[Rfam]
RNA: Histone 3' UTR stem-loop
RNA sequence: AAAAAGGCUCUUUUCAGAGCCACCUACAAUACUCAUAAAGGGUUG
Dot-bracket structure: .....((((((....))))))........................